[Rfam]
RNA sequence: AUGUGAGGUAGAGGCGCGGUAUUUAUUAGUCCAUUGCUGAGUUAAAGCAAGCGAAGACGUAAUGGAGAAGGAAAUAUCGCCGAAGUAUAAAAGGAGCUCGUACUUUUAUGCUGGGUCUGCAGUGAAUAAGUGCAGGACUGUCCUAGUAAAUCUAAUUCCAGUUUACUAGGUUGUGCUAUCUCAGAA
Numbered sequence: 001a002u003g004u005g006a007g008g009u010a011g012a013g014g015c016g017c018g019g020u021a022u023u024u025a026u027u028a029g030u031c032c033a034u035u036g037c038u039g040a041g042u043u044a045a046a047g048c049a050a051g052c053g054a055a056g057a058c059g060u061a062a063u064g065g066a067g068a069a070g071g072a073a074a075u076a077u078c079g080c081c082g083a084a085g086u087a088u089a090a091a092a093g094g095a096g097c098u099c100g101u102a103c104u105u106u107u108a109u110g111c112u113g114g115g116u117c118u119g120c121a122g123u124g125a126a127u128a129a130g131u132g133c134a135g136g137a138c139u140g141u142c143c144u145a146g147u148a149a150a151u152c153u154a155a156u157u158c159c160a161g162u163u164u165a166c167u168a169g170g171u172u173g174u175g176c177u178a179u180c181u182c183a184g185a186a
Stems, first nucleotide, its partner, number of pairs: 006181006016080009031065007084112010095101001113139002116136006123129001142170010
Rfam assigns this 186-nucleotide RNA from Lysinibacillus sphaericus to the family "Lysine riboswitch aptamer".
Rfam describes the family as follows. Riboswitches are metabolite binding domains within certain messenger RNAs that serve as precision sensors for their corresponding targets. Allosteric rearrangement of mRNA structure is mediated by ligand binding, and this results in modulation of gene expression. This family includes riboswitches that sense lysine in a number of genes involved in lysine metabolism, including lysC.
Lineage of the source: Bacteria > Bacillati > Bacillota > Bacilli > Lysinibacillus.